Shown here is a 53-nucleotide RNA sequence from Acer saccharum, a member of the family "Plastid-psbl-rps4 3UTR RNA". The family has 200 seed sequences and 1,631 matches in Rfam 15.1. A search with the family's covariance model found it, with a score of 76 bits. Lineage of the source: Eukaryota > Magnoliopsida > rosids > malvids > Acer. From the family's description: Plastid psbl-rps4-psbC is a non-coding RNA (ncRNA) present in plastids. By type it is a cis-regulatory element.

RNA sequence: CGAAAAGAGAGGGAUUCGAACCCUUGGUACGAAUAGCUCGUACAACGGAUUAG
Numbered sequence: 001c002g003a004a005a006a007g008a009g010a011g012g013g014a015u016u017c018g019a020a021c022c023c024u025u026g027g028u029a030c031g032a033a034u035a036g037c038u039c040g041u042a043c044a045a046c047g048g049a050u051u052a053g
Stems, first nucleotide, its partner, number of pairs: 009025005027043006